[Rfam]
Shown here is a 52-nucleotide RNA from Pseudooceanicola marinus, a member of the family "serC leader". It scores 68 bits against the family's covariance model.

Nucleotides: 052
Base pairs, nucleotide, nucleotide: 011028012027013026014025015024016023032047033046034045036043037042
Number, partner (000 for none) and nucleotide at each position: 001000c002000g003000g004000u005000g006000g007000g008000a009000c010000a011028c012027c013026c014025c015024u016023c017000c018000c019000c020000a021000a022000c023016g024015a025014g026013g027012g028011g029000c030000g031000c032047u033046u034045a035000u036043c037042u038000g039000g040000a041000a042037g043036g044000u045034u046033a047032a048000g049000u050000c051000a052000u
Annotation:
The family's RNA type in Rfam is cis-regulatory leader. The source organism's lineage runs through Bacteria, Pseudomonadati, Pseudomonadota, Rhodobacterales and Pseudooceanicola.